[Rfam]
RNA sequence: ACCGAUAAUGGCAAACUCGUCGCGAGGCGAGGACGCAAAGUCAUGGGUCCCUAGAUGGAUCGCCAGACUGCCGAAG
Numbered sequence: 001a002c003c004g005a006u007a008a009u010g011g012c013a014a015a016c017u018c019g020u021c022g023c024g025a026g027g028c029g030a031g032g033a034c035g036c037a038a039a040g041u042c043a044u045g046g047g048u049c050c051c052u053a054g055a056u057g058g059a060u061c062g063c064c065a066g067a068c069u070g071c072c073g074a075a076g
Stems, first nucleotide, its partner, number of pairs: 003073002011036002016031006034062001039069004044065003047060003